[Rfam]
RNA sequence: CGCUUAUAGAGAAAGAUGGAGGGAUUAGACCCUGCGAAAUCUUAGCAACCUGUGCCAACAAGGUGCUGCAUUCUACUCAAACACUUCAAACACGUUUGGGAAAGAUAAGCG
Number, nucleotide and partner (000 for none) at each position: 001c111002g110003c109004u108005u107006a106007u105008a000009g000010a000011g000012a000013a043014a042015g041016a040017u039018g000019g000020a000021g032022g031023g030024a000025u000026u075027a074028g073029a072030c023031c022032c021033u000034g000035c000036g000037a000038a000039a017040u016041c015042u014043u013044a067045g066046c065047a064048a000049c063050c062051u060052g059053u058054g000055c000056c000057a000058a053059c052060a051061a000062g050063g049064u047065g046066c045067u044068g000069c000070a000071u103072u029073c028074u027075a026076c100077u099078c098079a097080a096081a095082c000083a000084c000085u000086u000087c000088a000089a000090a000091c000092a000093c000094g000095u081096u080097u079098g078099g077100g076101a000102a000103a071104g000105a007106u006107a005108a004109g003110c002111g001